RNA: c-di-AMP riboswitch aptamer (ydaO/yuaA leader)
Organism: Alicyclobacillus acidoterrestris
RNA sequence: GAACAAUAUCAGCCGAAUCCUGGCUAGCCAGGUACGGGGGACGAUUUUCAUGGGGUUAAUGUGCGUUGCACACGGGCAACUCCUGCCCGCACCCGUCAACUAACCUCGGAGGCGUAGGAGGCUAUCAUA
Numbered sequence: 001g002a003a004c005a006a007u008a009u010c011a012g013c014c015g016a017a018u019c020c021u022g023g024c025u026a027g028c029c030a031g032g033u034a035c036g037g038g039g040g041a042c043g044a045u046u047u048u049c050a051u052g053g054g055g056u057u058a059a060u061g062u063g064c065g066u067u068g069c070a071c072a073c074g075g076g077c078a079a080c081u082c083c084u085g086c087c088c089g090c091a092c093c094c095g096u097c098a099a100c101u102a103a104c105c106u107c108g109g110a111g112g113c114g115u116a117g118g119a120g121g122c123u124a125u126c127a128u129a
Stems, first nucleotide, its partner, number of pairs: 012113003019032004035108005042052002053094003061071004074088004